The record is an 84-nucleotide sequence from Eptatretus burgeri, which matches "mir-301 microRNA precursor family" in Rfam.
[Rfam]
RNA sequence: UGCGGGUCAGGGCUCUGACAGCUAUGCACUACUGUACCGCAGAGCAAGCAGUGCAAUAGCAUUGUCAAAGCCUCGACCAGCAGU
Numbered sequence: 001u002g003c004g005g006g007u008c009a010g011g012g013c014u015c016u017g018a019c020a021g022c023u024a025u026g027c028a029c030u031a032c033u034g035u036a037c038c039g040c041a042g043a044g045c046a047a048g049c050a051g052u053g054c055a056a057u058a059g060c061a062u063u064g065u066c067a068a069a070g071c072c073u074c075g076a077c078c079a080g081c082a083g084u
Base pairs, nucleotide, nucleotide: 002081003080007076008075010073011072012071013070014069016067017066018065019064025055026054027053028052029051030050
A search with the family's covariance model found it, with a score of 63 bits.
A reference for the family is Houbaviy et al. (2003), "Embryonic stem cell-specific MicroRNAs", Dev Cell.
Gene Ontology terms of the family: miRNA-mediated post-transcriptional gene silencing and RISC complex.
NCBI's taxonomy places the organism under Eukaryota, Opisthokonta, Metazoa, Myxini, Eptatretus.